[Rfam]
Nucleotides: 135
Stems, first nucleotide, its partner, number of pairs: 003062005009057001015050006022043001024041001026039001073128006082109003086106001089103006
Number, partner (000 for none) and nucleotide at each position: 001000u002000g003062u004061g005060c006059u007058u008000c009057u010000c011000g012000a013000a014000u015050a016049a017048c018047c019046a020045a021000u022043u023000g024041c025000u026039g027000u028000g029000a030000u031000u032000u033000g034000u035000a036000u037000a038000u039026u040000u041024g042000c043022a044000u045020u046019u047018g048017g049016u050015u051000c052000a053000g054000a055000c056000a057009g058007g059006g060005g061004c062003a063000c064000a065000u066000a067000a068000c069000a070000a071000a072000u073128g074127g075126g076125a077124u078123c079000u080000u081000u082109u083108g084107a085000g086106g087000g088000a089103a090102g091101g092100g093099a094098u095000c096000u097000u098094g099093u100092u101091c102090u103089u104000u105000g106086u107084u108083c109082a110000u111000c112000c113000c114000u115000u116000c117000u118000u119000a120000a121000u122000u123078g124077a125076u126075u127074c128073c129000g130000a131000c132000a133000g134000u135000a
Shown here is a 135-nucleotide sequence from Panicum virgatum, a member of the family "Small nucleolar RNA snoR138". The base pairs follow the family's consensus structure, which was predicted with mfold.